Shown here is a 191-nucleotide sequence from Mauremys mutica, a member of the family "U2 spliceosomal RNA". It scores 177 bits against the family's covariance model. Rfam links the family to the GO terms pre-mRNA branch point binding, mRNA branch site recognition and U2 snRNP. Rfam classes the family as a spliceosomal small nuclear RNA. The literature on the family includes a 1997 paper in Nucleic Acids Res by Zwieb, "The uRNA database".
[Rfam]
Nucleotides: 191
Stems, first nucleotide, its partner, number of pairs: 007026003011022004047066006068084007112144005118138002125134003147184005154176005
Number, partner (000 for none) and nucleotide at each position: 001000a002000u003000c004000g005000c006000u007026u008025c009024u010000c011022g012021g013020c014019c015000u016000u017000u018000u019014g020013g021012c022011u023000a024009a025008g026007a027000u028000c029000a030000a031000g032000u033000g034000u035000a036000g037000u038000g039000u040000c041000u042000g043000u044000u045000c046000u047066u048065a049064u050063c051062a052061g053000u054000u055000u056000a057000a058000u059000a060000u061052c062051u063050g064049a065048u066047a067000u068084g069083u070082u071081c072080u073079c074078g075000a076000u077000u078074u079073g080072a081071g082070a083069a084068c085000u086000u087000u088000a089000u090000a091000u092000u093000a094000a095000a096000u097000g098000g099000a100000u101000u102000u103000u104000u105000g106000g107000a108000a109000c110000a111000g112144g113143g114142a115141g116140u117000u118138g119137g120000a121000a122000u123000a124000c125134g126133a127132g128000c129000u130000u131000g132127c133126u134125c135000c136000a137119u138118c139000c140116g141115c142114u143113c144112c145000a146000c147184g148183c149182a150181u151180c152000a153000g154176c155175u156174u157173g158172g159000u160000a161000u162000u163000g164000c165000a166000g167000u168000a169000c170000u171000u172158c173157u174156g175155g176154g177000c178000a179000c180151g181150g182149u183148g184147c185000a186000c187000c188000u189000c190000c191000c